[Rfam]
Rfam assigns this 82-nucleotide RNA sequence from Taxus chinensis to the family "Small nucleolar RNA snoR60". The family's consensus secondary structure was predicted with PFOLD. Its Rfam clan is "SNORD101 clan".
RNA sequence: AAGUGAAGGAUGAUAUACAUUUGGAUUCCCCUUCAAGACACUAUAGAUGAUGUGGAACCAAGUUGAAGAAGAUUCUAACACU
Numbered sequence: 001a002a003g004u005g006a007a008g009g010a011u012g013a014u015a016u017a018c019a020u021u022u023g024g025a026u027u028c029c030c031c032u033u034c035a036a037g038a039c040a041c042u043a044u045a046g047a048u049g050a051u052g053u054g055g056a057a058c059c060a061a062g063u064u065g066a067a068g069a070a071g072a073u074u075c076u077a078a079c080a081c082u
Stems, first nucleotide, its partner, number of pairs: 002082004